[Rfam]
Nucleotides: 179
Base pairs, nucleotide, nucleotide: 006174007173009171010170011169016081017080018079019078020077024073032066033065034063035062036061037060038059085108086107087106088105089104090103091102092101093100109135110134112132113131114130115129116128117127118126119125137164138163139162140161141160142159143158144157145156146155
Number, partner (000 for none) and nucleotide at each position: 001000a002000g003000c004000a005000c006174a007173g008000c009171u010170a011169g012000a013000g014000g015000c016081g017080c018079g019078g020077a021000g022000a023000u024073u025000a026000a027000g028000a029000g030000u031000a032066c033065g034063c035062u036061g037060a038059u039000g040000g041000a042000g043000g044000c045000c046000g047000a048000a049000a050000g051000c052000c053000u054000g055000a056000g057000a058000a059038g060037u061036c062035a063034g064000u065033c066032g067000g068000a069000a070000a071000g072000g073024a074000u075000g076000a077020u078019c079018c080017g081016c082000c083000g084000a085108a086107g087106u088105c089104g090103c091102u092101u093100u094000g095000u096000c097000a098000u099000a100093a101092a102091a103090g104089c105088g106087g107086c108085u109135g110134g111000g112132g113131a114130c115129c116128u117127a118126u119125c120000g121000a122000a123000c124000a125119g126118g127117u128116a129115g130114g131113u132112c133000a134110c135109u136000g137164u138163c139162u140161u141160u142159g143158u144157a145156a146155a147000g148000a149000u150000g151000c152000c153000a154000u155146u156145u157144u158143a159142c160141a161140a162139a163138g164137g165000a166000g167000c168000a169011c170010u171009a172000u173007c174006u175000u176000a177000a178000g179000g

Source information:
Lysine riboswitch aptamer: a 179-nucleotide sequence from Holdemania filiformis. On this family, see Mandal et al., Cell 2003: "Riboswitches Control Fundamental Biochemical Pathways in Bacillus subtilis and Other Bacteria".